[Rfam]
RNA sequence: UCCCUCAGUUUGCCGACUCUCGUUUUCCGCAAGGAAUGUCUAUCGCAGACCCCCUCUCGGGCUCGUUGGACACAAUAUGCCGCUCUCGAGCCUGUAUCAGGACCUCGCUGCAUGCCGCACUCGGAUCAUUGUUGUCCUUGGCCGUCGGUAGCAGACGGUACAGCCUGGCCGGGGGAACGAGAGCCGGAACCUAACCCUAAGAAUAUUU
Numbered sequence: 001u002c003c004c005u006c007a008g009u010u011u012g013c014c015g016a017c018u019c020u021c022g023u024u025u026u027c028c029g030c031a032a033g034g035a036a037u038g039u040c041u042a043u044c045g046c047a048g049a050c051c052c053c054c055u056c057u058c059g060g061g062c063u064c065g066u067u068g069g070a071c072a073c074a075a076u077a078u079g080c081c082g083c084u085c086u087c088g089a090g091c092c093u094g095u096a097u098c099a100g101g102a103c104c105u106c107g108c109u110g111c112a113u114g115c116c117g118c119a120c121u122c123g124g125a126u127c128a129u130u131g132u133u134g135u136c137c138u139u140g141g142c143c144g145u146c147g148g149u150a151g152c153a154g155a156c157g158g159u160a161c162a163g164c165c166u167g168g169c170c171g172g173g174g175g176a177a178c179g180a181g182a183g184c185c186g187g188a189a190c191c192u193a194a195c196c197c198u199a200a201g202a203a204u205a206u207u208u
Base pairs, nucleotide, nucleotide: 008190009189013187014186015185
This 208-nucleotide part of an RNA from Ophiocordyceps sinensis belongs to the Rfam family "Ascomycota telomerase RNA".
It is annotated as a non-coding RNA gene.
NCBI's taxonomy places the organism under Eukaryota, Opisthokonta, sordariomyceta, Sordariomycetes, Ophiocordyceps.